[Rfam]
RNA sequence: GUGAGGGGCCUUUCAGGCAUCCUCUCCUAAAACUUUCACGGGCCGGUCAUAUGACCGGCCUUUUUUUUCGCGAUUG
Dot-bracket structure: .......((((...)))).....................(((((((((....)))))))))...............
Numbered sequence: 001g002u003g004a005g006g007g008g009c010c011u012u013u014c015a016g017g018c019a020u021c022c023u024c025u026c027c028u029a030a031a032a033c034u035u036u037c038a039c040g041g042g043c044c045g046g047u048c049a050u051a052u053g054a055c056c057g058g059c060c061u062u063u064u065u066u067u068u069c070g071c072g073a074u075u076g
Stems, first nucleotide, its partner, number of pairs: 008018004040061009